[Rfam]
RNA sequence: GGGGUAGGUAGAGGAGCACAAGCAUGAAUACAUAACGGGAGGAUGGCAACGUUGAUGGUUAUGGAAGAUGCUAAGUGCCGAAAUGGAUAAAUUGAGCCAAUCGUUUAUUCAUUGGAAUUUCUUCGAUGGGAGAAUUCUGUCAUUGAUUAGUAAAAUCGAUGGAGCGCUACCGGUUAA
Numbered sequence: 001g002g003g004g005u006a007g008g009u010a011g012a013g014g015a016g017c018a019c020a021a022g023c024a025u026g027a028a029u030a031c032a033u034a035a036c037g038g039g040a041g042g043a044u045g046g047c048a049a050c051g052u053u054g055a056u057g058g059u060u061a062u063g064g065a066a067g068a069u070g071c072u073a074a075g076u077g078c079c080g081a082a083a084u085g086g087a088u089a090a091a092u093u094g095a096g097c098c099a100a101u102c103g104u105u106u107a108u109u110c111a112u113u114g115g116a117a118u119u120u121c122u123u124c125g126a127u128g129g130g131a132g133a134a135u136u137c138u139g140u141c142a143u144u145g146a147u148u149a150g151u152a153a154a155a156u157c158g159a160u161g162g163a164g165c166g167c168u169a170c171c172g173g174u175u176a177a
Stems, first nucleotide, its partner, number of pairs: 007171005016078004021072003031063006038056001082113011114138004119134006140162007
Shown here is a 177-nucleotide sequence from Haloplasma contractile, a member of the family "Lysine riboswitch aptamer". Lineage of the source: Bacteria > Bacillati > Mycoplasmatota > Mollicutes > Haloplasma contractile.